[Rfam]
RNA sequence: ACGGUGUUCCGCUGUAGUAACUAAAGACUAUAAGAGCAUCUG
Numbered sequence: 001a002c003g004g005u006g007u008u009c010c011g012c013u014g015u016a017g018u019a020a021c022u023a024a025a026g027a028c029u030a031u032a033a034g035a036g037c038a039u040c041u042g
Base pairs, nucleotide, nucleotide: 003040004039005038006037007036008035009034013032014031015030016029017028018027
Annotation: The family of this 42-nucleotide RNA from Ureibacillus manganicus is "Ribosomal protein L19 leader". A reference for the family is Zengel and Lindahl (1994), "Diverse mechanisms for regulating ribosomal protein synthesis in Escherichia coli", Prog Nucleic Acid Res Mol Biol. NCBI's taxonomy places the organism under Bacteria, Bacillati, Bacilli, Ureibacillus, Ureibacillus manganicus. The family's RNA type in Rfam is cis-regulatory leader. The match comes from Rfam's covariance-model search (38 bits). From the family's description: This family is a putative r-protein leader autoregulatory structure found in B. subtilis and other low-GC Gram-positive bacteria. It is located in the 5' untranslated regions of mRNAs encoding ribosomal protein L19 (rplS).